RNA sequence: AGUUACCACUAGGGGUGCCCAAAAGGCUGAGAGAAGCUAUGGCUUCAACCCUUUGUACCUGAUCUGGGUAAUACCAGCGAAGGGAAGUGGGUGGAACGAGUG
Numbered sequence: 001a002g003u004u005a006c007c008a009c010u011a012g013g014g015g016u017g018c019c020c021a022a023a024a025g026g027c028u029g030a031g032a033g034a035a036g037c038u039a040u041g042g043c044u045u046c047a048a049c050c051c052u053u054u055g056u057a058c059c060u061g062a063u064c065u066g067g068g069u070a071a072u073a074c075c076a077g078c079g080a081a082g083g084g085a086a087g088u089g090g091g092u093g094g095a096a097c098g099a100g101u102g
Stems, first nucleotide, its partner, number of pairs: 006090005011052004017027003034045004058083003064077004
Dot-bracket structure: .....(((((((((..(((.....)))......((((....))))...)))).....(((...((((......))))...)))..)))))............
RNA: TPP riboswitch aptamer (THI element)